[Rfam]
RNA: FMN riboswitch aptamer (RFN element)
RNA sequence: CACGUGCUCCGGGGUCGGUGAGAAUUCCGAACCGGCGGUGACAGUCCGCGAACCGCAACCCCGUCGAGGGGCUGCGGUUGACCUGGUGGAACUCCAGGACCGACGGUGAAAGUCCGGAGGAGAGGCAGCACGAG
Numbered sequence: 001c002a003c004g005u006g007c008u009c010c011g012g013g014g015u016c017g018g019u020g021a022g023a024a025u026u027c028c029g030a031a032c033c034g035g036c037g038g039u040g041a042c043a044g045u046c047c048g049c050g051a052a053c054c055g056c057a058a059c060c061c062c063g064u065c066g067a068g069g070g071g072c073u074g075c076g077g078u079u080g081a082c083c084u085g086g087u088g089g090a091a092c093u094c095c096a097g098g099a100c101c102g103a104c105g106g107u108g109a110a111a112g113u114c115c116g117g118a119g120g121a122g123a124g125g126c127a128g129c130a131c132g133a134g
Base pairs, nucleotide, nucleotide: 003132004131005130006129007128008127009125010124016029017028018027031113032112033102034101035049036048037047038046044100045099052078053077054076055075056074082098083097084096085095086094104116105115106114